[Rfam]
RNA sequence: CUGUAGAAAUACAAAAACACAGUUCGGUUGGUAGUCCGGACGCAUACGAGUAUGUCAGUAACCUUCCCCUCCGGGAUGUCCAGUAUUUCUGAAUCUUUU
Numbered sequence: 001c002u003g004u005a006g007a008a009a010u011a012c013a014a015a016a017a018c019a020c021a022g023u024u025c026g027g028u029u030g031g032u033a034g035u036c037c038g039g040a041c042g043c044a045u046a047c048g049a050g051u052a053u054g055u056c057a058g059u060a061a062c063c064u065u066c067c068c069c070u071c072c073g074g075g076a077u078g079u080c081c082a083g084u085a086u087u088u089c090u091g092a093a094u095c096u097u098u099u
Stems, first nucleotide, its partner, number of pairs: 004091008022041006042055005065076004
Dot-bracket structure: ...((((((((..........((((((........))))))(((((....))))).........((((....)))).......))))))))........
Description
This 99-nucleotide RNA sequence from Bacillus cytotoxicus belongs to the Rfam family "azaaromatic riboswitch aptamer (yjdF RNA)". The organism belongs to Bacillus cytotoxicus, within Bacteria. The sequence is in the family's curated seed alignment.